[Rfam]
RNA sequence: UGAUCCUCUCAAGUCCAACCGUCGGGGCUACGUACAGAGUUCCUGGUAGCUCAUUUGUGCCCUGGGGAAGGUCCCCGGACCCGUGGUAGAAAGUACCGCUGGGUGCUCCCGGUUAGCCGCUGGUGCAUCCGGCGCAAGACAGGAAAUCCUUCGGGAGUAUCGGUGCGUUGGUAUGCCAGCGGUGUUUGUCAUAGCAAAGUAAUGUCUGGAGCCCGUCUAGGCAACUAGAUGGGUAACACAACGGGGCCCAUUCUGAGAGCAUC
Numbered sequence: 001u002g003a004u005c006c007u008c009u010c011a012a013g014u015c016c017a018a019c020c021g022u023c024g025g026g027g028c029u030a031c032g033u034a035c036a037g038a039g040u041u042c043c044u045g046g047u048a049g050c051u052c053a054u055u056u057g058u059g060c061c062c063u064g065g066g067g068a069a070g071g072u073c074c075c076c077g078g079a080c081c082c083g084u085g086g087u088a089g090a091a092a093g094u095a096c097c098g099c100u101g102g103g104u105g106c107u108c109c110c111g112g113u114u115a116g117c118c119g120c121u122g123g124u125g126c127a128u129c130c131g132g133c134g135c136a137a138g139a140c141a142g143g144a145a146a147u148c149c150u151u152c153g154g155g156a157g158u159a160u161c162g163g164u165g166c167g168u169u170g171g172u173a174u175g176c177c178a179g180c181g182g183u184g185u186u187u188g189u190c191a192u193a194g195c196a197a198a199g200u201a202a203u204g205u206c207u208g209g210a211g212c213c214c215g216u217c218u219a220g221g222c223a224a225c226u227a228g229a230u231g232g233g234u235a236a237c238a239c240a241a242c243g244g245g246g247c248c249c250a251u252u253c254u255g256a257g258a259g260c261a262u263c
Stems, first nucleotide, its partner, number of pairs: 002263003006259006014210004018205002022065007037052005070248002073246004085097004098113006115183001117181001120179005129171007212233008